[Rfam]
RNA sequence: GGAUGUGCGGGUGGAAUUGGCUGCGACUCCCAUCACACCCCAUUGAUCGCUAGCGAUAGGAUCGGCUGAUCUGGUUGGUUAGAUGGGGCGUCCCCCGUUCCCCGCACGGAUCCGCGUCCGGUCUCGCCGAUGCCCCGCGCUCGGAUCGACGGCCGAGAGGCUCACCGCACGCACUACUGACACAGCGCACGGGUUUAACCACGGAGCUGCGAGUACCCACUUAGACCAAACACCGGAGACGGCGACGGCGAUAAGAGGGAAGCACGCUCUGCACCAUAUGUUGGUCAGAUGGUGGCCUUUCGAUUGCAGUCUCUGCAGAAGCUGCUGUUCACU
Numbered sequence: 001g002g003a004u005g006u007g008c009g010g011g012u013g014g015a016a017u018u019g020g021c022u023g024c025g026a027c028u029c030c031c032a033u034c035a036c037a038c039c040c041c042a043u044u045g046a047u048c049g050c051u052a053g054c055g056a057u058a059g060g061a062u063c064g065g066c067u068g069a070u071c072u073g074g075u076u077g078g079u080u081a082g083a084u085g086g087g088g089c090g091u092c093c094c095c096c097g098u099u100c101c102c103c104g105c106a107c108g109g110a111u112c113c114g115c116g117u118c119c120g121g122u123c124u125c126g127c128c129g130a131u132g133c134c135c136c137g138c139g140c141u142c143g144g145a146u147c148g149a150c151g152g153c154c155g156a157g158a159g160g161c162u163c164a165c166c167g168c169a170c171g172c173a174c175u176a177c178u179g180a181c182a183c184a185g186c187g188c189a190c191g192g193g194u195u196u197a198a199c200c201a202c203g204g205a206g207c208u209g210c211g212a213g214u215a216c217c218c219a220c221u222u223a224g225a226c227c228a229a230a231c232a233c234c235g236g237a238g239a240c241g242g243c244g245a246c247g248g249c250g251a252u253a254a255g256a257g258g259g260a261a262g263c264a265c266g267c268u269c270u271g272c273a274c275c276a277u278a279u280g281u282u283g284g285u286c287a288g289a290u291g292g293u294g295g296c297c298u299u300u301c302g303a304u305u306g307c308a309g310u311c312u313c314u315g316c317a318g319a320a321g322c323u324g325c326u327g328u329u330c331a332c333u
Base pairs, nucleotide, nucleotide: 001113002112003111005107006106007105008104009103010102011101014100015099019095020094025092026091027090028088029087030086031085032084033083034082038078039077040074041073042072045071046070047069048068049066050065051064121174122173123171126168127144128143129142130141132140133139147167148166155162206267207266214261216259217258218257220255221254228252231250233248234247288333290331292328293327294326295325296324297321298320299319
RNA: 7SK RNA
Organism: Eptatretus burgeri